RNA sequence: CACAGAGUAGAAAGCAAAGCGUUAAGUGCUGUCCGGAUGGGAUGUUGCCGGCAGACGAAGAAAUUGUUUUCGCGGUUUUGUUUUCGCAUUCGCUGCA
Dot-bracket structure: ..(((....(((((((((((((...((.((((.(((...[[[[[...)))))))))...((((....))))))).)))))))))).]]]]].)))..